[Rfam]
Shown here is a 648-nucleotide RNA sequence from Knufia peltigerae, a member of the family "RNase MRP".
Rfam classes the family as a ribozyme.
The source organism's lineage runs through Eukaryota, Opisthokonta, leotiomyceta, Trichomeriaceae and Knufia.
Rfam links the family to the GO terms ribonuclease MRP activity, ribonuclease MRP complex and rRNA processing.
From the family's description: RNase MRP is an enzymatically active ribonucleoprotein with two distinct roles in eukaryotes. In mitochondria it plays a direct role in the initiation of mitochondrial DNA replication. In the nucleus it is involved in precursor rRNA processing, where it cleaves the internal transcribed spacer 1 between 18S and 5.8S rRNAs. Despite distinct functions, RNase MRP has been shown to be evolutionarily related to RNase P. Like eukaryotic RNase P, RNase MRP is not catalytically active without associated protein subunits.
RNA sequence: UCCGCGUUCAAAGAAUCGCAUUCAAAGCUCACGCACAGCGAUGGAGCUCCCUCCUUUCGAGGAGAGGGGGUUUUCUCUGUCGCAUACCACCUUGGCUUUGGGAGAAAGUCCCCGGACCACCCUACCUUUUGGGGAUUCGUUUCCCACAAAGAACGUUAGGACUUGCCGUGAGGCGCCGCCAUAAAAGCAUUUUCACCGCGGCUCUCUUCUUGUUGGUCUCUGCUUUCCACUCUCCUCUGGGCAACCUACUGUUCCUCAGCCUUCGACCUCGUCCCGUCGUUUGUAUUCCUUGGCGAUGACCGGAAUCUGUUUUCACGUCGCCGUGCUUGACGCUUACAUCGAGGUAUCUGGAUGGACGAAGAUACGAGUCCGUCCCAUUAGGGUUUCGGCUAGAUAUCUCUUUUGACGCUGAGGGCCGGUGGUGAUUUGGGUUCUUGGGCAUCACGGGGAAGAGACGGCGAGGGUUUUAUACUGGAAGUGCUUGGGACAUUGGCUGCUCCGAGGGUUCAAGAGUGCUGAAGGUUGCGCAAUUCGUCACAUGAGUAUAGUUAUGCGAUUGCUCUUUUUUUCUCUUGCCCGGGGUUUGGAAACAGGUUUUGGGCGAGAGAAAGAGAGGGUAACUCGACGGGGCUUAUUCUUGAGACGCGG
Numbered sequence: 001u002c003c004g005c006g007u008u009c010a011a012a013g014a015a016u017c018g019c020a021u022u023c024a025a026a027g028c029u030c031a032c033g034c035a036c037a038g039c040g041a042u043g044g045a046g047c048u049c050c051c052u053c054c055u056u057u058c059g060a061g062g063a064g065a066g067g068g069g070g071u072u073u074u075c076u077c078u079g080u081c082g083c084a085u086a087c088c089a090c091c092u093u094g095g096c097u098u099u100g101g102g103a104g105a106a107a108g109u110c111c112c113c114g115g116a117c118c119a120c121c122c123u124a125c126c127u128u129u130u131g132g133g134g135a136u137u138c139g140u141u142u143c144c145c146a147c148a149a150a151g152a153a154c155g156u157u158a159g160g161a162c163u164u165g166c167c168g169u170g171a172g173g174c175g176c177c178g179c180c181a182u183a184a185a186a187g188c189a190u191u192u193u194c195a196c197c198g199c200g201g202c203u204c205u206c207u208u209c210u211u212g213u214u215g216g217u218c219u220c221u222g223c224u225u226u227c228c229a230c231u232c233u234c235c236u237c238u239g240g241g242c243a244a245c246c247u248a249c250u251g252u253u254c255c256u257c258a259g260c261c262u263u264c265g266a267c268c269u270c271g272u273c274c275c276g277u278c279g280u281u282u283g284u285a286u287u288c289c290u291u292g293g294c295g296a297u298g299a300c301c302g303g304a305a306u307c308u309g310u311u312u313u314c315a316c317g318u319c320g321c322c323g324u325g326c327u328u329g330a331c332g333c334u335u336a337c338a339u340c341g342a343g344g345u346a347u348c349u350g351g352a353u354g355g356a357c358g359a360a361g362a363u364a365c366g367a368g369u370c371c372g373u374c375c376c377a378u379u380a381g382g383g384u385u386u387c388g389g390c391u392a393g394a395u396a397u398c399u400c401u402u403u404u405g406a407c408g409c410u411g412a413g414g415g416c417c418g419g420u421g422g423u424g425a426u427u428u429g430g431g432u433u434c435u436u437g438g439g440c441a442u443c444a445c446g447g448g449g450a451a452g453a454g455a456c457g458g459c460g461a462g463g464g465u466u467u468u469a470u471a472c473u474g475g476a477a478g479u480g481c482u483u484g485g486g487a488c489a490u491u492g493g494c495u496g497c498u499c500c501g502a503g504g505g506u507u508c509a510a511g512a513g514u515g516c517u518g519a520a521g522g523u524u525g526c527g528c529a530a531u532u533c534g535u536c537a538c539a540u541g542a543g544u545a546u547a548g549u550u551a552u553g554c555g556a557u558u559g560c561u562c563u564u565u566u567u568u569u570c571u572c573u574u575g576c577c578c579g580g581g582g583u584u585u586g587g588a589a590a591c592a593g594g595u596u597u598u599g600g601g602c603g604a605g606a607g608a609a610a611g612a613g614a615g616g617g618u619a620a621c622u623c624g625a626c627g628g629g630g631c632u633u634a635u636u637c638u639u640g641a642g643a644c645g646c647g648g
Stems, first nucleotide, its partner, number of pairs: 002648006008641004014558006022102001023100006038083009106633003110630004432513006441506003445501004486494001488492001560617026